[Rfam]
RNA sequence: UUAUGGCACCGGGGGUGUCUGCCUUUCUCACCAGCAUUGCUGUGGGCAUGAGCAGGCUGAGAGAGUCCCUUUGCACCUGAACAGGGUAAUGCCUGCGUAGGGAGUGUGCCAUAUCUUGUAU
Numbered sequence: 001u002u003a004u005g006g007c008a009c010c011g012g013g014g015g016u017g018u019c020u021g022c023c024u025u026u027c028u029c030a031c032c033a034g035c036a037u038u039g040c041u042g043u044g045g046g047c048a049u050g051a052g053c054a055g056g057c058u059g060a061g062a063g064a065g066u067c068c069c070u071u072u073g074c075a076c077c078u079g080a081a082c083a084g085g086g087u088a089a090u091g092c093c094u095g096c097g098u099a100g101g102g103a104g105u106g107u108g109c110c111a112u113a114u115c116u117u118g119u120a121u
Stems, first nucleotide, its partner, number of pairs: 006109004011070004016064001017057005076101004082095004
Description:
The family of this 121-nucleotide RNA sequence is "TPP riboswitch aptamer (THI element)". A search with the family's covariance model found it, with a score of 64 bits. About the family: Vitamin B(1) in its active form thiamin pyrophosphate (TPP) is an essential coenzyme that is synthesised by coupling of pyrimidine and thiazole moieties in bacteria.